[Rfam]
RNA sequence: AACAAAUGUAGAGGUUGCGUUUUUCAUCAGUAUGCUGGCUGAUAUGUACAGGCAUAGAAGAGGCCGGGAGAAAGGGAAGAACGCCGAAGGAACGAAUAGCCUGAAUAGGAGUUCCUGGGCGUAUGGUUAAGAGCUAUAUGACUGUCAUCCAGCCGGAUGGAGCGCUACUUAAAGG
Numbered sequence: 001a002a003c004a005a006a007u008g009u010a011g012a013g014g015u016u017g018c019g020u021u022u023u024u025c026a027u028c029a030g031u032a033u034g035c036u037g038g039c040u041g042a043u044a045u046g047u048a049c050a051g052g053c054a055u056a057g058a059a060g061a062g063g064c065c066g067g068g069a070g071a072a073a074g075g076g077a078a079g080a081a082c083g084c085c086g087a088a089g090g091a092a093c094g095a096a097u098a099g100c101c102u103g104a105a106u107a108g109g110a111g112u113u114c115c116u117g118g119g120c121g122u123a124u125g126g127u128u129a130a131g132a133g134c135u136a137u138a139u140g141a142c143u144g145u146c147a148u149c150c151a152g153c154c155g156g157a158u159g160g161a162g163c164g165c166u167a168c169u170u171a172a173a174g175g
Stems, first nucleotide, its partner, number of pairs: 006170001008168004017084009033069001035067006088116006097107002117143002120140008145160006
Notes
Rfam assigns this 175-nucleotide sequence from Qiania dongpingensis to the family "Lysine riboswitch aptamer". NCBI's taxonomy places the organism under Bacteria, Bacillati, Bacillota, Clostridia, Qiania.